[Rfam]
RNA sequence: UACAUCAUUUGAUGAAAUUGGAAAAAUCUUAGGACACCUUCCUACACAGCAAAUUACUGUUGUGGAUGAGAAUGCAUUUUCCAUGCUGAUGAUGUA
Dot-bracket structure: (((((((..................................((....))........................................)))))))
Numbered sequence: 001u002a003c004a005u006c007a008u009u010u011g012a013u014g015a016a017a018u019u020g021g022a023a024a025a026a027u028c029u030u031a032g033g034a035c036a037c038c039u040u041c042c043u044a045c046a047c048a049g050c051a052a053a054u055u056a057c058u059g060u061u062g063u064g065g066a067u068g069a070g071a072a073u074g075c076a077u078u079u080u081c082c083a084u085g086c087u088g089a090u091g092a093u094g095u096a
Stems, first nucleotide, its partner, number of pairs: 001096007042049002